[Rfam]
RNA sequence: UAAACCUAAACGAUGCCAGCCCUACCUCUCUAACAUCCUUACGGCUCCGAGGCCGUUCCAGUGUGAAUAAGUCUUUCCAAAAAAAA
Numbered sequence: 001u002a003a004a005c006c007u008a009a010a011c012g013a014u015g016c017c018a019g020c021c022c023u024a025c026c027u028c029u030c031u032a033a034c035a036u037c038c039u040u041a042c043g044g045c046u047c048c049g050a051g052g053c054c055g056u057u058c059c060a061g062u063g064u065g066a067a068u069a070a071g072u073c074u075u076u077c078c079a080a081a082a083a084a085a086a
Stems, first nucleotide, its partner, number of pairs: 034065002038061002041056006
RNA: BsrC
Organism: Neobacillus rhizophilus